This 116-nucleotide sequence from Homo sapiens belongs to the Rfam family "U5 spliceosomal RNA". It scores 66 bits against the family's covariance model. NCBI's taxonomy places the organism under Eukaryota, Eumetazoa, Teleostomi, Euteleostomi, Homo. Rfam 15.1 lists 28,527 matches to the family in 2,489 species. Gene Ontology terms of the family: spliceosomal tri-snRNP complex assembly and U5 snRNP. The family's consensus secondary structure is taken from published work.
[Rfam]
RNA sequence: AUUCUCCAGUUUCUUUUCAGAUCAGAUAAAUUUUUCUCCUUUUACUAAUGAUUUUCAUGAAGAGGAACAACUCUGAGUCUUAAAUCAAUUUUUGAGGCCUUAUUUUGGCAAGGGUC
Dot-bracket structure: ...(((..(((((((((((........(((((.((...........)).)))))...)))))))))))......)))..................((((((.........))))))